Annotation
Rfam assigns this 155-nucleotide RNA from Firmicutes bacterium CAG:536 to the family "glmS glucosamine-6-phosphate activated ribozyme aptamer". Taxonomically the source falls in Bacillota (Bacteria, Bacillati). It is annotated as a riboswitch. The family's consensus secondary structure is taken from published work.
[Rfam]
RNA sequence: UAAAAAAGUAUAGCGCCAGGACUGUAUCGAUUUAGAUAUAGUUGACGAGGUUCAGGCUUAUCGAAAAAUUCGGCGGGUGGCCUGAAGGUUGAUACGACCUUAAAUAAGGACAAAACCAACUUGUGAGAGUUGAACAAAUUCCUUAGAGUAUCCUC
Number, nucleotide and partner (000 for none) at each position: 001u000002a000003a000004a000005a000006a000007a000008g000009u000010a000011u000012a000013g000014c000015g000016c000017c000018a000019g000020g043021a042022c041023u040024g039025u038026a037027u036028c035029g000030a000031u000032u000033u000034a000035g028036a027037u026038a025039u024040a023041g022042u021043u020044g000045a000046c000047g000048a000049g000050g000051u000052u085053c084054a083055g082056g081057c000058u000059u000060a000061u073062c072063g071064a070065a000066a000067a000068a000069u000070u064071c063072g062073g061074c000075g000076g000077g000078u000079g000080g000081c056082c055083u054084g053085a052086a100087g099088g098089u097090u096091g095092a000093u000094a000095c091096g090097a089098c088099c087100u086101u000102a000103a000104a000105u145106a144107a143108g142109g141110a000111c000112a000113a000114a000115a000116c000117c132118a131119a130120c129121u128122u127123g000124u000125g000126a000127g122128a121129g120130u119131u118132g117133a000134a000135c000136a000137a000138a000139u000140u000141c109142c108143u107144u106145a105146g000147a000148g000149u000150a000151u000152c000153c000154u000155c000